[Rfam]
RNA: PAGEV RNA
Organism: Bathymodiolus platifrons methanotrophic gill symbiont
RNA sequence: CCUAUUUUGGAAUCAAGAUGAUUUGGGAUAGGUCAGGACAGUGUUGUCGAACAAGGGUAACUGCUAAGACAACCCAUUAAGGCAUCUUUUGUAUAAAGUAUAAGCCGCAAGCUUAUUGUCGUUUUGAAUGCGGGAUUUGAAUUUUAUAAUGCAGAAGAUGGCACGUUUGGAGCAGGGGUGGAUAUUUUAUAUAUCUGGCAACGUGCAGGGCGU
Numbered sequence: 001c002c003u004a005u006u007u008u009g010g011a012a013u014c015a016a017g018a019u020g021a022u023u024u025g026g027g028a029u030a031g032g033u034c035a036g037g038a039c040a041g042u043g044u045u046g047u048c049g050a051a052c053a054a055g056g057g058u059a060a061c062u063g064c065u066a067a068g069a070c071a072a073c074c075c076a077u078u079a080a081g082g083c084a085u086c087u088u089u090u091g092u093a094u095a096a097a098g099u100a101u102a103a104g105c106c107g108c109a110a111g112c113u114u115a116u117u118g119u120c121g122u123u124u125u126g127a128a129u130g131c132g133g134g135a136u137u138u139g140a141a142u143u144u145u146a147u148a149a150u151g152c153a154g155a156a157g158a159u160g161g162c163a164c165g166u167u168u169g170g171a172g173c174a175g176g177g178g179u180g181g182a183u184a185u186u187u188u189a190u191a192u193a194u195c196u197g198g199c200a201a202c203g204u205g206c207a208g209g210g211c212g213u
Stems, first nucleotide, its partner, number of pairs: 001032007043073006062172001064170001083160005089154005161206006180196004